The family of this 85-nucleotide sequence from Halanaerobium praevalens is "ZMP/ZTP riboswitch aptamer (pfl RNA motif)". Lineage of the source: Bacteria > Bacillota > Halanaerobiaceae > Halanaerobium > Halanaerobium praevalens.

RNA sequence: AAUAGAUUAUAUGACUGGCGGAUAAAUAUGGAUUUAACCAUAGGGGAAUAUAAUCUUUAAUUAAUCGCCCGCCUGGAUAUUAGAA
Numbered sequence: 001a002a003u004a005g006a007u008u009a010u011a012u013g014a015c016u017g018g019c020g021g022a023u024a025a026a027u028a029u030g031g032a033u034u035u036a037a038c039c040a041u042a043g044g045g046g047a048a049u050a051u052a053a054u055c056u057u058u059a060a061u062u063a064a065u066c067g068c069c070c071g072c073c074u075g076g077a078u079a080u081u082a083g084a085a
Base pairs, nucleotide, nucleotide: 004056005055006054007053008052009051010050011049012048015045016044017073018072019071020070021069028041029040030039031038064078065077066076
About this RNA:
It scores 60 bits against the family's covariance model.